[Rfam]
Nucleotides: 091
Stems, first nucleotide, its partner, number of pairs: 006050007015041002017079004024037004068086005
Number, partner (000 for none) and nucleotide at each position: 001000c002000c003000c004000a005000g006050g007049c008048a009047c010046g011045g012044c013000g014000a015041c016040u017079g018078g019077c020076g021000c022000a023000c024037g025036g026035g027034g028000a029000a030000a031000u032000g033000a034027c035026c036025c037024c038000g039000g040016g041015g042000a043000a044012g045011c046010c047009g048008u049007g050006c051000g052000a053000a054000g055000c056000c057000c058000c059000a060000c061000c062000u063000u064000c065000g066000a067000g068086g069085u070084g071083c072082c073000g074000c075000c076020c077019g078018c079017c080000u081000g082072g083071g084070c085069a086068c087000c088000c089000c090000g091000g
ZMP/ZTP riboswitch aptamer (pfl RNA motif): a 91-nucleotide RNA sequence from Streptomyces gilvosporeus.
Gene Ontology terms of the family: regulation of purine nucleotide biosynthetic process and one-carbon metabolic process.
Pairs were carried over by alignment from the consensus structure, which is taken from published work.